About this RNA:
A member of the RNA family "mir-172 microRNA precursor family" from Chenopodium quinoa, 217 nucleotides long. mir-172 has been experimentally verified in Arabidopsis thaliana. This family is thought to target mRNAs coding for APETALA2-like transcription factors. The mature sequence is excised from the 3' arm of the hairpin. Its family is annotated with miRNA-mediated post-transcriptional gene silencing and RISC complex in the Gene Ontology. The family has 11 seed sequences and 2,076 matches in Rfam 15.1.
[Rfam]
RNA sequence: UUGUUUGCCGAUGCAGCACCAUCAAGAUUCACAUGCCUAGCUUCCUUGACUUCCUUCACUAAUUUUCUUGAUUUUUGGGGUUUUAUUUAUUUAAAAAAAAAAUGUGGUCACUAAACCCCAAAAAUAGAAAAAAAAUAAGUAUAAGAAUUUUUGUUGGAGGAGGUUAAGAAAGAAGUAAAGGAUGUGAGAAUCUUGAUGAUGCUGCAGCGGCAAUAAA
Numbered sequence: 001u002u003g004u005u006u007g008c009c010g011a012u013g014c015a016g017c018a019c020c021a022u023c024a025a026g027a028u029u030c031a032c033a034u035g036c037c038u039a040g041c042u043u044c045c046u047u048g049a050c051u052u053c054c055u056u057c058a059c060u061a062a063u064u065u066u067c068u069u070g071a072u073u074u075u076u077g078g079g080g081u082u083u084u085a086u087u088u089a090u091u092u093a094a095a096a097a098a099a100a101a102a103u104g105u106g107g108u109c110a111c112u113a114a115a116c117c118c119c120a121a122a123a124a125u126a127g128a129a130a131a132a133a134a135a136u137a138a139g140u141a142u143a144a145g146a147a148u149u150u151u152u153g154u155u156g157g158a159g160g161a162g163g164u165u166a167a168g169a170a171a172g173a174a175g176u177a178a179a180g181g182a183u184g185u186g187a188g189a190a191u192c193u194u195g196a197u198g199a200u201g202c203u204g205c206a207g208c209g210g211c212a213a214u215a216a217a
Stems, first nucleotide, its partner, number of pairs: 010208001012206007020198011032186004